[Rfam]
RNA sequence: UCUUCAGUGAGGUACAUCCUUACCUGUUACUCCCUCCGGGGAGUUUCAGUACAUGAUGAAUGGAGUAUUAUGAGACAUGAUUAAUGUCUCCCUCUUAGAAGGAACGGCAACACCUCCUAAGAGCCAUUCUGAU
Numbered sequence: 001u002c003u004u005c006a007g008u009g010a011g012g013u014a015c016a017u018c019c020u021u022a023c024c025u026g027u028u029a030c031u032c033c034c035u036c037c038g039g040g041g042a043g044u045u046u047c048a049g050u051a052c053a054u055g056a057u058g059a060a061u062g063g064a065g066u067a068u069u070a071u072g073a074g075a076c077a078u079g080a081u082u083a084a085u086g087u088c089u090c091c092c093u094c095u096u097a098g099a100a101g102g103a104a105c106g107g108c109a110a111c112a113c114c115u116c117c118u119a120a121g122a123g124c125c126a127u128u129c130u131g132a133u
Base pairs, nucleotide, nucleotide: 026044028043030041031040032039033038072090073089075087076086077085078083095121096119097118098117100115101114102113
The family of this 133-nucleotide RNA from Oryzias latipes is "U8 small nucleolar RNA". On this family, see Peculis et al., Gene 2001: "The U8 snoRNA gene family: identification and characterization of distinct, functional U8 genes in Xenopus". Gene Ontology terms of the family: RNA processing and nucleolus. It is one of the family's seed sequences. NCBI's taxonomy places the organism under Eukaryota, Metazoa, Eumetazoa, Actinopterygii, Oryzias.